[Rfam]
RNA sequence: CUUGAUUCCGACUAAAGAACAACUGCAGACGGGACUUAGAGAGAACCAGGAAGGUAGAGCCCAUAGGGAGAAAGCGUUUAUAAGAGUCGACGAUAAAAAAGAGCUUAUAAACCCACCAAGAAUUCAAGAGAAAGAAUUCAAGGAGCCGGAGAAAAUCUCACUCAGGACCCCUAAGGAUCUCGAACUAAAGAAA
Dot-bracket structure: ((((.......((((....................)))).......))))...........(.((((........(((((((((...................))))))))).......(((((...[[[[...)))))......((.(((....]]]].))).))...)))).)..................
Numbered sequence: 001c002u003u004g005a006u007u008c009c010g011a012c013u014a015a016a017g018a019a020c021a022a023c024u025g026c027a028g029a030c031g032g033g034a035c036u037u038a039g040a041g042a043g044a045a046c047c048a049g050g051a052a053g054g055u056a057g058a059g060c061c062c063a064u065a066g067g068g069a070g071a072a073a074g075c076g077u078u079u080a081u082a083a084g085a086g087u088c089g090a091c092g093a094u095a096a097a098a099a100a101g102a103g104c105u106u107a108u109a110a111a112c113c114c115a116c117c118a119a120g121a122a123u124u125c126a127a128g129a130g131a132a133a134g135a136a137u138u139c140a141a142g143g144a145g146c147c148g149g150a151g152a153a154a155a156u157c158u159c160a161c162u163c164a165g166g167a168c169c170c171c172u173a174a175g176g177a178u179c180u181c182g183a184a185c186u187a188a189a190g191a192a193a
Stems, first nucleotide, its partner, number of pairs: 001050004012039004062175001064173004076112009120139005128159004146166002149163003
IMES-1 RNA motif: a 193-nucleotide RNA. The family's consensus secondary structure is taken from published work. It is annotated as a non-coding RNA gene. On this family, see Weinberg et al., Nature 2009: "Exceptional structured noncoding RNAs revealed by bacterial metagenome analysis".